[Rfam]
Description
A member of the RNA family "Small nucleolar RNA Z159/U59" from Gossypium mustelinum, 74 nucleotides long. Rfam links the family to the GO terms nucleolus and RNA processing. It scores 40 bits against the family's covariance model. Clan: SNORD59 clan. The base pairs follow the family's consensus structure, which was predicted with PFOLD.
RNA sequence: CACUCUGAUGAUGUUUUUCGUUCUCCUGAUCUAAUAUAUGCUGAAAAUUUAUGGAGACCUGAACUGAAAGAGUU
Numbered sequence: 001c002a003c004u005c006u007g008a009u010g011a012u013g014u015u016u017u018u019c020g021u022u023c024u025c026c027u028g029a030u031c032u033a034a035u036a037u038a039u040g041c042u043g044a045a046a047a048u049u050u051a052u053g054g055a056g057a058c059c060u061g062a063a064c065u066g067a068a069a070g071a072g073u074u
Stems, first nucleotide, its partner, number of pairs: 003072004